A member of the RNA family "c-di-AMP riboswitch aptamer (ydaO/yuaA leader)" from Fontibacillus panacisegetis, 133 nucleotides long. Taxonomically the source falls in Fontibacillus (Bacteria, Bacillati, Bacillota, Caryophanales).
[Rfam]
RNA sequence: CCAAAAAUCAGGCCGAAGCUUAUAUGAGCGCGGGGGAACCGUUUUUGGGGGUGAAGUCGUAACUUUGCGACAGGGAAAAUCCGCUUUGUCCCGAACCCGUCAGCUAACCUCGUAGGCUGCAAAGGGAGAGAUU
Numbered sequence: 001c002c003a004a005a006a007a008u009c010a011g012g013c014c015g016a017a018g019c020u021u022a023u024a025u026g027a028g029c030g031c032g033g034g035g036g037a038a039c040c041g042u043u044u045u046u047g048g049g050g051g052u053g054a055a056g057u058c059g060u061a062a063c064u065u066u067g068c069g070a071c072a073g074g075g076a077a078a079a080u081c082c083g084c085u086u087u088g089u090c091c092c093g094a095a096c097c098c099g100u101c102a103g104c105u106a107a108c109c110u111c112g113u114a115g116g117c118u119g120c121a122a123a124g125g126g127a128g129a130g131a132u133u
Stems, first nucleotide, its partner, number of pairs: 011118004018029003030113006040048001049098003057070004073092004